Bacterial large subunit ribosomal RNA: a 600-nucleotide part of an RNA from Chondromyces crocatus. Rfam's curators put it in the seed alignment.
Nucleotides: 600
Base pairs, nucleotide, nucleotide: 007599008598009597010596011595012594013593014592015591016590022584023548024547027519028518029516030515031514032513033512034511035510036508037507038172039171046107047106048105049062050061051060068101069100070099071098072097073096074095077089078088079087112121113120114119122139124138125137126136127135128134141169142168143167144166145165147163148162149161150160176207177205178204179203180202181201187194188193217224218223227504228255229254230253231252232251238246239245258501259500260499261498266302267301268300269299270298271297272296273295274294275293276292309443310442311441314437315436316435317434318433351427353425354424355423356422360418361417362416364412365411366410370385371384372383373382374381388392394406395405396404449473450472451471452470454468455467456466480495481494482493483492484491535542536541558570559569560568561567
Number, partner (000 for none) and nucleotide at each position: 001000u002000a003000c004000g005000a006000a007599g008598g009597g010596c011595g012594c013593a014592c015591g016590g017000u018000g019000g020000a021000u022584g023548c024547c025000u026000a027519g028518g029516c030515g031514a032513u033512c034511a035510g036508a037507g038172g039171c040000g041000a042000a043000g044000a045000a046107g047106g048105a049062c050061g051060u052000g053000g054000a055000c056000a057000g058000c059000u060051g061050c062049g063000a064000a065000a066000a067000g068101c069100u070099c071098c072097g073096g074095g075000g076000a077089g078088c079087c080000g081000c082000u083000a084000a085000c086000a087079g088078g089077c090000u091000u092000u093000g094000a095074u096073c097072c098071g099070g100069a101068g102000a103000u104000c105048u106047c107046c108000g109000a110000a111000u112121g113120g114119g115000g116000c117000a118000a119114c120113c121112c122139g123000a124138g125137c126136a127135g128134g129000g130000a131000c132000u133000a134128c135127c136126u137125g138124c139122c140000a141169u142168c143167c144166u145165g146000a147163g148162a149161g150160u151000g152000a153000a154000u155000a156000c157000a158000u159000a160150g161149c162148u163147c164000u165145c166144g167143g168142g169141a170000a171039g172038c173000c174000a175000a176207g177205c178204c179203a180202g181201g182000g183000a184000a185000c186000u187194g188193a189000a190000a191000c192000a193188u194187c195000u196000a197000a198000g199000u200000a201181c202180c203179u204178g205177g206000a207176c208000g209000a210000a211000a212000a213000g214000a215000a216000a217224g218223c219000a220000a221000a222000a223218g224217c225000g226000a227504c228255u229254c230253c231252c232251u233000c234000a235000g236000u237000a238246g239245c240000g241000g242000c243000g244000a245239g246238c247000g248000a249000a250000g251232g252231g253230g254229g255228a256000a257000g258501a259500g260499c261498c262000u263000a264000a265000a266302c267301c268300a269299a270298u271297c272296c273295a274294g275293u276292g277000c278000a279000a280000g281000c282000a283000u284000g285000c286000u287000g288000g289000c290000g291000u292276u293275g294274c295273u296272g297271g298270a299269u300268u301267g302266g303000g304000g305000u306000c307000g308000u309443g310442g311441g312000a313000u314437c315436u316435c317434g318433a319000g320000g321000g322000g323000a324000g325000a326000g327000c328000g329000g330000c331000a332000u333000c334000u335000c336000u337000c338000c339000c340000g341000c342000u343000g344000a345000g346000u347000c348000a349000a350000a351427a352000a353425a354424g355423g356422c357000g358000a359000g360418g361417u362416u363000a364412g365411u366410c367000g368000a369000a370385c371384g372383g373382u374381c375000u376000g377000g378000a379000a380000a381374g382373g383372c384371c385370g386000g387000c388392c389000a390000u391000a392388g393000c394406a395405g396404g397000u398000g399000a400000c401000a402000g403000c404396c405395c406394u407000g408000u409000a410366g411365a412364c413000g414000a415000a416362a417361a418360c419000g420000g421000a422356g423355c424354c425353u426000c427351u428000c429000g430000g431000u432000g433318u434317c435316g436315a437314g438000a439000c440000a441311c442310c443309c444000g445000a446000g447000u448000a449473c450472c451471g452470c453000a454468g455467g456466a457000c458000a459000c460000g461000a462000g463000c464000a465000a466456u467455c468454c469000g470452g471451c472450g473449g474000g475000a476000a477000u478000c479000u480495g481494g482493g483492a484491g485000g486000a487000c488000c489000a490000u491484c492483u493482u494481c495480c496000a497000a498261g499260g500259c501258u502000a503000a504227g505000u506000a507037c508036u509000a510035c511034u512033g513032a514031u515030c516029g517000a518028c519027c520000g521000a522000u523000a524000g525000u526000g527000a528000a529000c530000u531000a532000g533000u534000a535542c536541c537000g538000c539000g540000a541536g542535g543000g544000a545000a546000a547024g548023g549000u550000g551000a552000a553000a554000a555000g556000a557000a558570c559569c560568c561567c562000g563000g564000u565000g566000a567561g568560g569559g570558g571000a572000g573000u574000g575000a576000a577000a578000u579000a580000g581000u582000a583000c584022c585000u586000g587000a588000a589000a590016c591015c592014g593013u594012g595011u596010g597009c598008c599007u600000a